[Rfam]
RNA sequence: UGGUGGCUCCAACCGGGACUAAAGGUCCCUACCACCUCCACUGCACGCAGUAGCCGUUGGGGCAGGGACCUUUAGUCCCGGUUGGAGCCACCAA
Numbered sequence: 001u002g003g004u005g006g007c008u009c010c011a012a013c014c015g016g017g018a019c020u021a022a023a024g025g026u027c028c029c030u031a032c033c034a035c036c037u038c039c040a041c042u043g044c045a046c047g048c049a050g051u052a053g054c055c056g057u058u059g060g061g062g063c064a065g066g067g068a069c070c071u072u073u074a075g076u077c078c079c080g081g082u083u084g085g086a087g088c089c090a091c092c093a094a
Base pairs, nucleotide, nucleotide: 003091004090005089006088007087008086009085010084011083012082013081014080015079016078017077018076019075020074021073022072023071024070025069026068027067029066030065033061035059038056044050
RNA: MIR5387 microRNA precursor family
Organism: Miscanthus lutarioriparius